[Rfam]
RNA sequence: ACAGGUUCAAGGCCAUAGCAGAAAUGCUCAUAAGGCAGCCUGUCAGAUUCCAGUGCAUCUGUGAGUUCUGCU
Numbered sequence: 001a002c003a004g005g006u007u008c009a010a011g012g013c014c015a016u017a018g019c020a021g022a023a024a025u026g027c028u029c030a031u032a033a034g035g036c037a038g039c040c041u042g043u044c045a046g047a048u049u050c051c052a053g054u055g056c057a058u059c060u061g062u063g064a065g066u067u068c069u070g071c072u
Stems, first nucleotide, its partner, number of pairs: 011040003017072007025035001044061005050055001
Shown here is a 72-nucleotide sequence from Alligator mississippiensis, a member of the family "Mammalian CPEB3 ribozyme". A search with the family's covariance model found it, with a score of 39 bits. The source organism's lineage runs through Eukaryota, Opisthokonta, Chordata, Sauria and Alligator. Pairs were carried over by alignment from the consensus structure, which is taken from published work.